SAM (S-adenosyl methionine) riboswitch aptamer: a 113-nucleotide RNA sequence from Janibacter cremeus. NCBI's taxonomy places the organism under Bacteria, Actinomycetota, Actinomycetes, Intrasporangiaceae, Janibacter. Its family is annotated with S-adenosylmethionine metabolic process and regulation of gene expression in the Gene Ontology.
[Rfam]
RNA sequence: GGUCCAGAGCGUCAGCGACAAGCCCCGGCUCGCUGACCGGCAACCCUCCUCCGCGGUGGGGUGCCCCGGGAGACGACCUGGCCCGUGGCGACCGCCACGGACAAGCGCGCACC
Numbered sequence: 001g002g003u004c005c006a007g008a009g010c011g012u013c014a015g016c017g018a019c020a021a022g023c024c025c026c027g028g029c030u031c032g033c034u035g036a037c038c039g040g041c042a043a044c045c046c047u048c049c050u051c052c053g054c055g056g057u058g059g060g061g062u063g064c065c066c067c068g069g070g071a072g073a074c075g076a077c078c079u080g081g082c083c084c085g086u087g088g089c090g091a092c093c094g095c096c097a098c099g100g101a102c103a104a105g106c107g108c109g110c111a112c113c
Base pairs, nucleotide, nucleotide: 001078002077003076004075009038011037012036013035014034015033016032021030022029039065040064041063044061045060046059048056049055081102083100084099085098086097087096088095089094